[Rfam]
RNA sequence: ACCUCCUACAAAGGCAUGUCUUUGAUCUCCUGUCUUUGGAUAUGUAAGACUUCUCCGGCAGAAAAGAAACGGGGAUUUGGAGAAGUCUGGGGCCAGGUUGCUACUCAUGGGCUCAGAUCAAUCACCUCACACAG
Numbered sequence: 001a002c003c004u005c006c007u008a009c010a011a012a013g014g015c016a017u018g019u020c021u022u023u024g025a026u027c028u029c030c031u032g033u034c035u036u037u038g039g040a041u042a043u044g045u046a047a048g049a050c051u052u053c054u055c056c057g058g059c060a061g062a063a064a065a066g067a068a069a070c071g072g073g074g075a076u077u078u079g080g081a082g083a084a085g086u087c088u089g090g091g092g093c094c095a096g097g098u099u100g101c102u103a104c105u106c107a108u109g110g111g112c113u114c115a116g117a118u119c120a121a122u123c124a125c126c127u128c129a130c131a132c133a134g
Stems, first nucleotide, its partner, number of pairs: 002061001005058002015044007024030001073127002077124001095113002098110003

Rfam assigns this 134-nucleotide sequence from Sciurus vulgaris to the family "Small nucleolar RNA SNORA38". Rfam links the family to the GO terms Cajal body, RNA processing and nucleolus. The base pairs follow the family's consensus structure, which was predicted with RNAfold. About the family: ACA38 is a member of the H/ACA class of snoRNA that guide the sites of modification of uridines to pseudouridines. It scores 86 bits against the family's covariance model.